[Rfam]
Nucleotides: 130
Stems, first nucleotide, its partner, number of pairs: 036060009110123004
Number, partner (000 for none) and nucleotide at each position: 001000c002000u003000a004000a005000a006000c007000u008000a009000a010000g011000u012000a013000g014000c015000g016000a017000a018000c019000a020000a021000g022000g023000c024000u025000c026000a027000g028000a029000a030000c031000a032000a033000a034000g035000a036060a037059a038058a039057g040056c041055c042054c043053c044052g045000c046000g047000u048000u049000a050000a051000u052044c053043g054042g055041g056040g057039c058038u059037u060036u061000u062000u063000u064000g065000u066000u067000u068000u069000g070000u071000c072000a073000g074000c075000a076000u077000a078000g079000c080000u081000u082000u083000u084000a085000u086000c087000g088000g089000c090000u091000c092000c093000g094000a095000u096000a097000a098000a099000a100000g101000c102000u103000c104000a105000a106000a107000a108000c109000u110123g111122g112121g113120c114000u115000u116000u117000u118000u119000a120113g121112c122111c123110c124000u125000u126000u127000u128000u129000u130000u

This 130-nucleotide RNA sequence from Alginatibacterium sediminis belongs to the Rfam family "Gammaprotebacteria rimP leader".
The match comes from Rfam's covariance-model search (56 bits).